[Rfam]
Nucleotides: 068
Base pairs, nucleotide, nucleotide: 002067003066004065007063008062009061010060011059015056016055018053019046020045021044022043023042024041027031
Number, partner (000 for none) and nucleotide at each position: 001000g002067c003066a004065g005000u006000a007063u008062u009061c010060c011059u012000g013000a014000a015056u016055a017000a018053a019046u020045c021044a022043a023042g024041g025000c026000a027031u028000c029000c030000u031027a032000c033000a034000u035000a036000a037000u038000a039000a040000a041024c042023c043022u044021u045020g046019a047000g048000u049000u050000a051000c052000a053018u054000c055016u056015a057000c058000a059011g060010g061009g062008a063007g064000a065004c066003u067002g068000a

MAT2A 3'UTR stem loop E: a 68-nucleotide RNA from Pteropus vampyrus.
It is annotated as a cis-regulatory element.
NCBI's taxonomy places the organism under Eukaryota, Opisthokonta, Bilateria, Vertebrata, Pteropus.
On this family, see Parker et al., Genome Res 2011: "New families of human regulatory RNA structures identified by comparative analysis of vertebrate genomes".